[Rfam]
RNA sequence: CUCGAGGUCGAACAAGGGUGUGUGACCCUACAAUCCGAAACGCGAGACUUAAUGCUUCGCCUGCGAUUGUAGAGUCAUACACCUCUGCUAGCCUUCCGG
Numbered sequence: 001c002u003c004g005a006g007g008u009c010g011a012a013c014a015a016g017g018g019u020g021u022g023u024g025a026c027c028c029u030a031c032a033a034u035c036c037g038a039a040a041c042g043c044g045a046g047a048c049u050u051a052a053u054g055c056u057u058c059g060c061c062u063g064c065g066a067u068u069g070u071a072g073a074g075u076c077a078u079a080c081a082c083c084u085c086u087g088c089u090a091g092c093c094u095u096c097c098g099g
Base pairs, nucleotide, nucleotide: 004096005095006094009091011089016084017083018082019081020080021079023077024076025075026074028072029071030070031069033067034066035065
RNA: MIR1223 microRNA precursor family
Organism: Physcomitrium patens